The record is a 73-nucleotide RNA from Cnephaeus nilssonii, which matches "mir-574 microRNA precursor family" in Rfam.
On this family, see Lui et al., Cancer Res 2007: "Patterns of known and novel small RNAs in human cervical cancer".
Its Rfam clan is "mir-574 microRNA precursor clan".
The base pairs follow the family's consensus structure, which was predicted with RNAalifold.
RNA sequence: AGGCCUGGAGAGGCAGGGUCUGAUCUGCAGCCUCCAUGGCAGCUGUUGAUCAGCCAUUGCCUCUCUCUUUCCU
Numbered sequence: 001a002g003g004c005c006u007g008g009a010g011a012g013g014c015a016g017g018g019u020c021u022g023a024u025c026u027g028c029a030g031c032c033u034c035c036a037u038g039g040c041a042g043c044u045g046u047u048g049a050u051c052a053g054c055c056a057u058u059g060c061c062u063c064u065c066u067c068u069u070u071c072c073u
Base pairs, nucleotide, nucleotide: 008065009064010063011062012061013060014059015058016057018055020053021052022051023050024049025048028045029044030043031042
A search with the family's covariance model found it, with a score of 83 bits.